Annotation
Rfam assigns this 173-nucleotide RNA to the family "Group II catalytic intron D1-D4-3". Group II introns are found in rRNA, tRNA and mRNA of organelles in fungi, plants and protists, and also in mRNA in bacteria. The family has 406 seed sequences and 4,274 matches in Rfam 15.1.

[Rfam]
RNA sequence: UCCACCGCGAGGUGGAAUCUGAAGGAAGCCGCAGGCAAAGCGCUGGCCCGACGAACAGGAAUCGCAUACGAGGCGGUCACACCGGGUGAGACGGCCAAUAUCGUCAAAGCCCAGUACUUGCACGGACGGUGUGGACGUAAAUGCGGCGGGUAUAAGUGUGACGGUCACGCGUC
Numbered sequence: 001u002c003c004a005c006c007g008c009g010a011g012g013u014g015g016a017a018u019c020u021g022a023a024g025g026a027a028g029c030c031g032c033a034g035g036c037a038a039a040g041c042g043c044u045g046g047c048c049c050g051a052c053g054a055a056c057a058g059g060a061a062u063c064g065c066a067u068a069c070g071a072g073g074c075g076g077u078c079a080c081a082c083c084g085g086g087u088g089a090g091a092c093g094g095c096c097a098a099u100a101u102c103g104u105c106a107a108a109g110c111c112c113a114g115u116a117c118u119u120g121c122a123c124g125g126a127c128g129g130u131g132u133g134g135a136c137g138u139a140a141a142u143g144c145g146g147c148g149g150g151u152a153u154a155a156g157u158g159u160g161a162c163g164g165u166c167a168c169g170c171g172u173c
Base pairs, nucleotide, nucleotide: 001016002015003014004013005012006011028173030171031170032169035165036164040159041158042157043156044155046151047150048149049148050147062146063145064144065143066142067141073138074137075136077134078133079132080131081130082129083128084112085111086110087109090105091104092103093102
Rfam's curators put it in the seed alignment.